[Rfam]
RNA sequence: UGACGGGGGCCCGCACAAGCGGUGGAGCAUGUGGUUUAAUUCGAUGCAACGCGAAGAACCUUACCAUCCCUUGACAUCCACAGAACUUUCUAGAGAUAGAUUGGUGCCUUCGGGAACUGUGAGACAGGUGCUGCAUGGCUGUCGUCAGCUCGUGUCGUGAGAUGUUGGGUUAAGUCCCGCAACGAGCGCAACCCUUAUCAUUAGUUGCUACCAUUUAGUUGAGAACUCUAAUGAGACUGCCGGUGAUAAACCGGAGGAAGGCGGGGACGACGUCAAGUCAUCAUGGCCCUUAUGGGAUGGGCUACACACGUGCUACAAUGGUCGGUACAAACAGUUGCGAAGCCGCGAGGUGGUGCGAAUCUGAAAAAACCGAUCGUAGUCCGGAUUGGAGUCUGCAACUCGACUCCAUGAAGUCGGAAUCGCUAGUAAUCGCAAAUCAGAAUGUUGCGGUGAAUACGUUCCCGGGCCUUGUACACACCGCCCGUCACACCAUGGGAGUGGGUUGCACCAGAAGUAGCUAGUCUAACCUUCGGGAGGACGGUUACCACGGUGUGAUUCAUGACUGGGGUGAAGUCGUAACAAGG
Numbered sequence: 001u002g003a004c005g006g007g008g009g010c011c012c013g014c015a016c017a018a019g020c021g022g023u024g025g026a027g028c029a030u031g032u033g034g035u036u037u038a039a040u041u042c043g044a045u046g047c048a049a050c051g052c053g054a055a056g057a058a059c060c061u062u063a064c065c066a067u068c069c070c071u072u073g074a075c076a077u078c079c080a081c082a083g084a085a086c087u088u089u090c091u092a093g094a095g096a097u098a099g100a101u102u103g104g105u106g107c108c109u110u111c112g113g114g115a116a117c118u119g120u121g122a123g124a125c126a127g128g129u130g131c132u133g134c135a136u137g138g139c140u141g142u143c144g145u146c147a148g149c150u151c152g153u154g155u156c157g158u159g160a161g162a163u164g165u166u167g168g169g170u171u172a173a174g175u176c177c178c179g180c181a182a183c184g185a186g187c188g189c190a191a192c193c194c195u196u197a198u199c200a201u202u203a204g205u206u207g208c209u210a211c212c213a214u215u216u217a218g219u220u221g222a223g224a225a226c227u228c229u230a231a232u233g234a235g236a237c238u239g240c241c242g243g244u245g246a247u248a249a250a251c252c253g254g255a256g257g258a259a260g261g262c263g264g265g266g267a268c269g270a271c272g273u274c275a276a277g278u279c280a281u282c283a284u285g286g287c288c289c290u291u292a293u294g295g296g297a298u299g300g301g302c303u304a305c306a307c308a309c310g311u312g313c314u315a316c317a318a319u320g321g322u323c324g325g326u327a328c329a330a331a332c333a334g335u336u337g338c339g340a341a342g343c344c345g346c347g348a349g350g351u352g353g354u355g356c357g358a359a360u361c362u363g364a365a366a367a368a369a370c371c372g373a374u375c376g377u378a379g380u381c382c383g384g385a386u387u388g389g390a391g392u393c394u395g396c397a398a399c400u401c402g403a404c405u406c407c408a409u410g411a412a413g414u415c416g417g418a419a420u421c422g423c424u425a426g427u428a429a430u431c432g433c434a435a436a437u438c439a440g441a442a443u444g445u446u447g448c449g450g451u452g453a454a455u456a457c458g459u460u461c462c463c464g465g466g467c468c469u470u471g472u473a474c475a476c477a478c479c480g481c482c483c484g485u486c487a488c489a490c491c492a493u494g495g496g497a498g499u500g501g502g503u504u505g506c507a508c509c510a511g512a513a514g515u516a517g518c519u520a521g522u523c524u525a526a527c528c529u530u531c532g533g534g535a536g537g538a539c540g541g542u543u544a545c546c547a548c549g550g551u552g553u554g555a556u557u558c559a560u561g562a563c564u565g566g567g568g569u570g571a572a573g574u575c576g577u578a579a580c581a582a583g584g
Stems, first nucleotide, its partner, number of pairs: 001475002003472003007469007015459002019423005024316001026314008034305002040055004064300007077124002079121005086103001089100004105116001107114002127289002130287004136283002138278003141274001143272002148187006154163003166179004193266004198234007208223002212221002237257002240254005320375007332363003337356002342351003382413001387408007429451007478583001480580001483576002488570004493565003498560012514545006521539004527534002

This 584-nucleotide part of an RNA from Thiomicrospira cyclica belongs to the Rfam family "Bacterial small subunit ribosomal RNA". For this family Rfam cites "The comparative RNA web (CRW) site: an online database of comparative sequence and structure information for ribosomal, intron, and other RNAs" (Cannone et al., BMC Bioinformatics, 2002).